Description: Rfam assigns this 266-nucleotide RNA sequence from Clostridium sp. Maddingley MBC34-26 to the family "Bacterial large signal recognition particle RNA". On this family, see Rosenblad et al., Nucleic Acids Res 2003: "SRPDB: Signal Recognition Particle Database". It scores 196 bits against the family's covariance model. The source organism's lineage runs through Bacteria, Bacillati, Clostridia, Clostridiaceae and Clostridium. By type it is a non-coding RNA gene.

Nucleotides: 266
Base pairs, nucleotide, nucleotide: 001266002265003264004263005262006261009058010057011056012030013029014028015027017025018024019023035055036054037053038052039051064259065258066257067256068255069254073250074249075248079243080242081241082240083239084238085237086236087235088234093229096227097226098225099224100223101222104220105219106217107216108215115211116210117209118208119207120206121205122204124199125198126197127196128195129191132189133188134187135186136185139180140179141178142177148173149172150171151170156165157164158163
Number, partner (000 for none) and nucleotide at each position: 001266u002265c003264g004263u005262g006261c007000u008000a009058g010057a011056u012030g013029g014028g015027g016000a017025g018024c019023u020000a021000g022000c023019g024018g025017u026000g027015c028014c029013c030012u031000g032000u033000a034000a035055c036054c037053u038052g039051c040000a041000a042000u043000c044000c045000g046000c047000u048000a049000u050000a051039g052038c053037a054036g055035g056011a057010u058009u059000g060000a061000a062000u063000c064259c065258u066257u067256a068255u069254u070000a071000u072000a073250g074249g075248c076000u077000u078000u079243a080242a081241u082240c083239u084238g085237u086236u087235u088234g089000g090000u091000c092000a093229g094000u095000c096227u097226g098225a099224u100223u101222u102000g103000u104220g105219u106217a107216g108215u109000g110000u111000u112000g113000a114000u115211a116210a117209u118208u119207g120206g121205g122204u123000c124199c125198c126197a127196u128195g129191c130000a131000g132189c133188a134187g135186a136185a137000a138000c139180u140179c141178a142177u143000g144000a145000a146000c147000c148173c149172c150171g151170u152000c153000a154000g155000a156165u157164c158163c159000g160000g161000a162000a163158g164157g165156a166000a167000g168000c169000a170151g171150c172149g173148g174000u175000a176000a177142g178141u179140g180139a181000u182000a183000a184000c185136u186135u187134c188133u189132g190000a191129g192000u193000g194000c195128c196127g197126u198125g199124g200000a201000u202000u203000a204122a205121c206120c207119u208118a209117g210116u211115u212000u213000g214000a215108g216107c217106u218000u219105a220104c221000u222101a223100a224099a225098u226097c227096a228000g229093u230000a231000g232000c233000g234088c235087a236086a237085g238084u239083a240082g241081a242080u243079u244000a245000a246000c247000u248075g249074u250073c251000a252000a253000c254069a255068a256067u257066g258065a259064g260000u261006g262005c263004a264003c265002g266001a